RNA sequence: GUUGCUUCACAACUGGAAGUAUGGCCUGUUGUUAAUAGUUUGGUCAUGCUGUAGAGGGAAGCAUAGAUUAAUCGGAAACACUGGCCAGCAUUAAACAGCACGACGCAUUACCAAACUGCGUCAUGUUACCUGUCUUCUGGCACAUUU
Number, nucleotide and partner (000 for none) at each position: 001g000002u000003u063004g062005c061006u060007u059008c058009a000010c000011a000012a000013c000014u000015g000016g052017a000018a050019g049020u048021a000022u046023g045024g044025c043026c042027u000028g000029u000030u000031g000032u000033u000034a000035a000036u000037a000038g000039u000040u000041u000042g026043g025044u024045c023046a022047u000048g020049c019050u018051g000052u016053a000054g000055a000056g000057g000058g008059a007060a006061g005062c004063a003064u000065a000066g000067a000068u000069u000070a000071a000072u000073c000074g000075g000076a000077a000078a000079c000080a000081c000082u000083g000084g141085c140086c139087a138088g137089c000090a135091u000092u000093a000094a000095a000096c000097a127098g126099c125100a000101c000102g122103a121104c120105g119106c000107a000108u000109u000110a000111c000112c000113a000114a000115a000116c000117u000118g000119c105120g104121u103122c102123a000124u000125g099126u098127u097128a000129c000130c000131u000132g000133u000134c000135u090136u000137c088138u087139g086140g085141c084142a000143c000144a000145u000146u000147u000